[Rfam]
A member of the RNA family "Small nucleolar RNA SNORA84" from Trichechus manatus, 134 nucleotides long.
Pairs were carried over by alignment from the consensus structure, which was predicted with WAR.
Taxonomically the source falls in Trichechus manatus (Eukaryota, Teleostomi, Tetrapoda, Mammalia).
The family has 28 seed sequences and 757 matches in Rfam 15.1.
The match comes from Rfam's covariance-model search (129 bits).
The family's RNA type in Rfam is H/ACA-box small nucleolar RNA.
A reference for the family is Marker et al. (2002), "Experimental RNomics: identification of 140 candidates for small non-messenger RNAs in the plant Arabidopsis thaliana", Curr Biol.
RNA sequence: GCCCUGUGGUUACUGGAUGCUGUUGUGCAUGUACAGCUCUCCAGCGGAUGACGAUGGGCCAGAGCAUCCCUGUGAUGUAUGCAUGGGAGCUGUUCCUCCUCGGCAGCCUCCAUAGCCCGGUUACUGGUACAUGG
Numbered sequence: 001g002c003c004c005u006g007u008g009g010u011u012a013c014u015g016g017a018u019g020c021u022g023u024u025g026u027g028c029a030u031g032u033a034c035a036g037c038u039c040u041c042c043a044g045c046g047g048a049u050g051a052c053g054a055u056g057g058g059c060c061a062g063a064g065c066a067u068c069c070c071u072g073u074g075a076u077g078u079a080u081g082c083a084u085g086g087g088a089g090c091u092g093u094u095c096c097u098c099c100u101c102g103g104c105a106g107c108c109u110c111c112a113u114a115g116c117c118c119g120g121u122u123a124c125u126g127g128u129a130c131a132u133g134g
Stems, first nucleotide, its partner, number of pairs: 001059004007050002010047002013044005019037005070126001072124005081116002083113004089107006